[Rfam]
RNA sequence: CCCUCGAGCUGGGAGUGUUCGCCCGUGGUGGGCGAGCUGAGAGAUAUCCCUUGAACCUGAACCGGAUCAUGCCGGCGUAGGAAAGCUCAGGACGUCGUCG
Numbered sequence: 001c002c003c004u005c006g007a008g009c010u011g012g013g014a015g016u017g018u019u020c021g022c023c024c025g026u027g028g029u030g031g032g033c034g035a036g037c038u039g040a041g042a043g044a045u046a047u048c049c050c051u052u053g054a055a056c057c058u059g060a061a062c063c064g065g066a067u068c069a070u071g072c073c074g075g076c077g078u079a080g081g082a083a084a085g086c087u088c089a090g091g092a093c094g095u096c097g098u099c100g
Base pairs, nucleotide, nucleotide: 006088007087008086009085010084011050012049013048014047016044017037018036019035020034021033022032023031024030056081057080058079059078062075063074064073065072